[Rfam]
Shown here is a 137-nucleotide RNA from Malus domestica, a member of the family "MIR5225 microRNA precursor family". Rfam links the family to the GO terms miRNA-mediated post-transcriptional gene silencing and RISC complex. Lineage of the source: Eukaryota > Streptophyta > rosids > Rosaceae > Malus.
RNA sequence: CGUAGGGACUUCGGUCGUAGGUGAGAUGCAGCCGAAUGCCUUGUAUAUUGGGUUGCUUCGGUUUCAAGCUGUAUAUAUAUAGCUAGCCAAUUCGUGGCACCGAGCUUCAUCUGUCCUCGACUGAAGCCUCUCAAGCU
Number, nucleotide and partner (000 for none) at each position: 001c000002g000003u000004a000005g129006g128007g127008a000009c126010u125011u124012c123013g000014g121015u120016c119017g118018u000019a117020g116021g115022u000023g000024a112025g111026a110027u109028g108029c000030a000031g000032c000033c000034g000035a000036a000037u000038g000039c000040c000041u000042u000043g000044u000045a000046u000047a000048u000049u000050g000051g000052g000053u000054u000055g000056c000057u000058u000059c000060g000061g000062u000063u000064u000065c000066a000067a000068g000069c000070u000071g000072u000073a000074u000075a000076u000077a000078u000079a000080u000081a000082g000083c000084u000085a000086g000087c000088c000089a000090a000091u000092u000093c000094g000095u000096g000097g000098c000099a000100c000101c000102g000103a000104g000105c000106u000107u000108c028109a027110u026111c025112u024113g000114u000115c021116c020117u019118c017119g016120a015121c014122u000123g012124a011125a010126g009127c007128c006129u005130c000131u000132c000133a000134a000135g000136c000137u000